[Rfam]
RNA sequence: GUCAGGAACCCCACGCCUAAAGGGCGGGAGCUUGUAAGCAUCCGCAAGGUUGUUUCAUAAGCUCACCUGACCAGACUCAGCCUGGGGACAGGCUCCGUUAGGAGCGAAAUAGGUACGUUGGGAUGCGUUGCCAGUCCCAACCUCUACGGUGCAGCAUUAAACAGGUCUACAAGGGUUAAGCCCGUGUGUUGCACGUUAAACCACUCCAUAACAUUGCCGAGGCACACAUUAG
Numbered sequence: 001g002u003c004a005g006g007a008a009c010c011c012c013a014c015g016c017c018u019a020a021a022g023g024g025c026g027g028g029a030g031c032u033u034g035u036a037a038g039c040a041u042c043c044g045c046a047a048g049g050u051u052g053u054u055u056c057a058u059a060a061g062c063u064c065a066c067c068u069g070a071c072c073a074g075a076c077u078c079a080g081c082c083u084g085g086g087g088a089c090a091g092g093c094u095c096c097g098u099u100a101g102g103a104g105c106g107a108a109a110u111a112g113g114u115a116c117g118u119u120g121g122g123a124u125g126c127g128u129u130g131c132c133a134g135u136c137c138c139a140a141c142c143u144c145u146a147c148g149g150u151g152c153a154g155c156a157u158u159a160a161a162c163a164g165g166u167c168u169a170c171a172a173g174g175g176u177u178a179a180g181c182c183c184g185u186g187u188g189u190u191g192c193a194c195g196u197u198a199a200a201c202c203a204c205u206c207c208a209u210a211a212c213a214u215u216g217c218c219g220a221g222g223c224a225c226a227c228a229u230u231a232g
Stems, first nucleotide, its partner, number of pairs: 001071006010030001012027001016023002031048004074218001076216001079094005097212004102206003106202001113147002117141008129224004149194009161185002164182002167180002171176001
The family of this 232-nucleotide sequence from Ktedonosporobacter rubrisoli is "HNH endonuclease-associated RNA and ORF (HEARO) RNA". A search with the family's covariance model found it, with a score of 130 bits. The source organism's lineage runs through Bacteria, Chloroflexota, Ktedonobacteria, Ktedonosporobacteraceae and Ktedonosporobacter. The family's RNA type in Rfam is non-coding RNA gene. The family's consensus secondary structure is taken from published work.